The record is a 124-nucleotide RNA sequence from Sciurus vulgaris, which matches "Small nucleolar RNA SNORA33" in Rfam. ACA33 is a member of the H/ACA class of snoRNA that guide the sites of modification of uridines to pseudouridines. The organism belongs to Sciurus, within Eukaryota. The base pairs follow the family's consensus structure, which was predicted with PFOLD. Rfam links the family to the GO terms RNA processing and nucleolus. It scores 82 bits against the family's covariance model.
[Rfam]
RNA sequence: AAUCCAGCAACAUUGGUAUCUCUGAUGUAUAUCAUUUUAGAUUAGUCAGUCUGGCAAUAAUAAUGCCAAUUUAUGAGCCUUCAGGACACUGAAGUCAUUAAGGUCCCUGAAAAUGGCUACAAUA
Numbered sequence: 001a002a003u004c005c006a007g008c009a010a011c012a013u014u015g016g017u018a019u020c021u022c023u024g025a026u027g028u029a030u031a032u033c034a035u036u037u038u039a040g041a042u043u044a045g046u047c048a049g050u051c052u053g054g055c056a057a058u059a060a061u062a063a064u065g066c067c068a069a070u071u072u073a074u075g076a077g078c079c080u081u082c083a084g085g086a087c088a089c090u091g092a093a094g095u096c097a098u099u100a101a102g103g104u105c106c107c108u109g110a111a112a113a114u115g116g117c118u119a120c121a122a123u124a
Stems, first nucleotide, its partner, number of pairs: 004054004065117004077104005083098001085096003